[Rfam]
RNA sequence: CGUGUCGACGAGAUGAAUUAUUACGGAUGUAAAAGAGCUGCGGCUCACUUGUCCGAGAGCGCAUAAACCUCGUGUGGAUGUUUCCGUUGCCUUCCUUCUGAUCUCCACGU
Numbered sequence: 001c002g003u004g005u006c007g008a009c010g011a012g013a014u015g016a017a018u019u020a021u022u023a024c025g026g027a028u029g030u031a032a033a034a035g036a037g038c039u040g041c042g043g044c045u046c047a048c049u050u051g052u053c054c055g056a057g058a059g060c061g062c063a064u065a066a067a068c069c070u071c072g073u074g075u076g077g078a079u080g081u082u083u084c085c086g087u088u089g090c091c092u093u094c095c096u097u098c099u100g101a102u103c104u105c106c107a108c109g110u
Stems, first nucleotide, its partner, number of pairs: 003109003024086004
RNA: Small nucleolar RNA Z13/snr52